[Rfam]
The family of this 232-nucleotide part of an RNA from Mucilaginibacter segetis is "Bacterial large subunit ribosomal RNA". Pairs were carried over by alignment from the consensus structure, which is taken from published work.

RNA sequence: GAGUUACUCCUCUCUGGCAAGGUUAAGUGGUUCAGCCACGGAUCCGAAGCGAAAGCGAGUCUGAAUAGGGCGUAUAGUCAGAGGGGGUAGACGCGAAACCUUGUGAUCUACCCAUGGACAGGUUGAAGGUGCCGUAACAGGUACUGGAGGACCGAACCGAUAAACGUUGAAAAGUUUCCGGAUGAUCUGUGGGUAGGGGUGAAAGGCUAAUCAAACUGGGAAAUAGCUCGUA
Numbered sequence: 001g002a003g004u005u006a007c008u009c010c011u012c013u014c015u016g017g018c019a020a021g022g023u024u025a026a027g028u029g030g031u032u033c034a035g036c037c038a039c040g041g042a043u044c045c046g047a048a049g050c051g052a053a054a055g056c057g058a059g060u061c062u063g064a065a066u067a068g069g070g071c072g073u074a075u076a077g078u079c080a081g082a083g084g085g086g087g088u089a090g091a092c093g094c095g096a097a098a099c100c101u102u103g104u105g106a107u108c109u110a111c112c113c114a115u116g117g118a119c120a121g122g123u124u125g126a127a128g129g130u131g132c133c134g135u136a137a138c139a140g141g142u143a144c145u146g147g148a149g150g151a152c153c154g155a156a157c158c159g160a161u162a163a164a165c166g167u168u169g170a171a172a173a174g175u176u177u178c179c180g181g182a183u184g185a186u187c188u189g190u191g192g193g194u195a196g197g198g199g200u201g202a203a204a205g206g207c208u209a210a211u212c213a214a215a216c217u218g219g220g221a222a223a224u225a226g227c228u229c230g231u232a
Base pairs, nucleotide, nucleotide: 005089006088007087009086010085011084012083013082014081015080016079017078018077021045022044024042027039028038029037049056050055059071060070061069062068092230093229095227099220100219101218103216104215108196109195110194111193112192113191114190115189116188117187118186119184121153122152123151124150128145129144130143131142132141133140157181158180159179162177163176164175165174198208199207200206